Shown here is an 80-nucleotide RNA from Atractosteus spatula, a member of the family "mir-199 microRNA precursor family". A reference for the family is Mourelatos et al. (2002), "miRNPs: a novel class of ribonucleoproteins containing numerous microRNAs", Genes Dev. This family consists of the microRNA (miRNA) precursor mir-199 which appears to be specific to humans. Animal miRNAs are transcribed as ~70nt precursors and subsequently processed by the Dicer enzyme to give a ~22nt product. In this case the mature sequence comes from the 3' arm of the precursor. The extents of the hairpin precursors are not generally known and are estimated based on hairpin prediction. The products are thought to have regulatory roles through complementarity to mRNA. The involvement of Dicer in miRNA processing suggests a relationship with the phenomenon of RNA interference. miRNAs are numbered based on the sequence of the mature RNA. The family has 83 seed sequences and 1,828 matches in Rfam 15.1. The organism belongs to Atractosteus, within Eukaryota. The base pairs follow the family's consensus structure, which was predicted with RNAalifold.
RNA sequence: CCUUCGCCUCCCCAGUGUUCAGACUACCUGUUCAUUAGGCUAUGGGUGUACAGUAGUCUGCACAUUGGUUAGGCUGGGCA
Numbered sequence: 001c002c003u004u005c006g007c008c009u010c011c012c013c014a015g016u017g018u019u020c021a022g023a024c025u026a027c028c029u030g031u032u033c034a035u036u037a038g039g040c041u042a043u044g045g046g047u048g049u050a051c052a053g054u055a056g057u058c059u060g061c062a063c064a065u066u067g068g069u070u071a072g073g074c075u076g077g078g079c080a
Stems, first nucleotide, its partner, number of pairs: 012068007020060007028053004033048002